[Rfam]
RNA sequence: GGACAUGUCCCUGGAGAGAUCCAUUUAGUAUGGGCAUCGAAGAAGAAACUCAAAUAGUUUACUAUUUUGAGGAAACUUUCAGAUAAAAGGACAGGUAGUGAAUA
Numbered sequence: 001g002g003a004c005a006u007g008u009c010c011c012u013g014g015a016g017a018g019a020u021c022c023a024u025u026u027a028g029u030a031u032g033g034g035c036a037u038c039g040a041a042g043a044a045g046a047a048a049c050u051c052a053a054a055u056a057g058u059u060u061a062c063u064a065u066u067u068u069g070a071g072g073a074a075a076c077u078u079u080c081a082g083a084u085a086a087a088a089g090g091a092c093a094g095g096u097a098g099u100g101a102a103u104a
Base pairs, nucleotide, nucleotide: 008097010095011094012093013092020034021033022032023031036084037083038082039080040079043078044077045076049071050070051069052068053067054066
Shown here is a 104-nucleotide sequence from Clostridium tagluense, a member of the family "Glycine riboswitch aptamer". Lineage of the source: Bacteria > Bacillati > Bacillota > Clostridia > Clostridium.